The record is a 56-nucleotide RNA sequence, which matches "msiK RNA" in Rfam.
RNA sequence: UAGACCCACCUUUACUCGGAUCGUCCGGCACGUUCCUGCCGGUGAAGGGAUCAGAU
Numbered sequence: 001u002a003g004a005c006c007c008a009c010c011u012u013u014a015c016u017c018g019g020a021u022c023g024u025c026c027g028g029c030a031c032g033u034u035c036c037u038g039c040c041g042g043u044g045a046a047g048g049g050a051u052c053a054g055a056u
Stems, first nucleotide, its partner, number of pairs: 009048006025042006